[Rfam]
RNA: NiCo (Nickel/Cobalt) riboswitch aptamer
Organism: Blautia argi
RNA sequence: AAGAAAAAAACGGAACAGGCAGCAGUAAUACUGUAUGCCGGGUCGCAAUGUGCGGCAGCAGAUGAGAAAAAACAUCUGUGGGACAAGG
Numbered sequence: 001a002a003g004a005a006a007a008a009a010a011c012g013g014a015a016c017a018g019g020c021a022g023c024a025g026u027a028a029u030a031c032u033g034u035a036u037g038c039c040g041g042g043u044c045g046c047a048a049u050g051u052g053c054g055g056c057a058g059c060a061g062a063u064g065a066g067a068a069a070a071a072a073c074a075u076c077u078g079u080g081g082g083a084c085a086a087g088g
Stems, first nucleotide, its partner, number of pairs: 013084001016082001018039004022034005042056005058079006